Shown here is a 136-nucleotide RNA from Orthohepacivirus hominis, a member of the family "Hepatitis C alternative reading frame stem-loop". For this family Rfam cites "The Coding Region of the HCV Genome Contains a Network of Regulatory RNA Structures" (Pirakitikulr et al., Mol Cell, 2016). The source organism's lineage runs through Viruses, Kitrinoviricota, Flasuviricetes, Amarillovirales and Orthohepacivirus. It is one of the family's seed sequences.
[Rfam]
RNA sequence: AACCGCCGCCCACAGGACGUCAAGUUCCCGGGUGGCGGUCAGAUCGUUGGCGGAGUUUACUUGCUGCCGCGCAGGGGCCCCAGGUUGGGUGUGCGCGCGACAAGGAAGACUUCCGAGCGAUCCCAGCCGCGUGGGA
Dot-bracket structure: ..(((((((((...((((.....))))..)))))))))...(((((((((.((.((((.((((....((((((...((((......)))).))))))...)).)).))))))))).))))))..............